RNA sequence: AAGGCGGAUUCCGAAAAGCCAACGAGUAGGAA
Number, nucleotide and partner (000 for none) at each position: 001a000002a000003g020004g019005c018006g000007g000008a000009u000010u031011c030012c029013g000014a000015a000016a000017a000018g005019c004020c003021a000022a000023c000024g000025a000026g000027u000028a000029g012030g011031a010032a000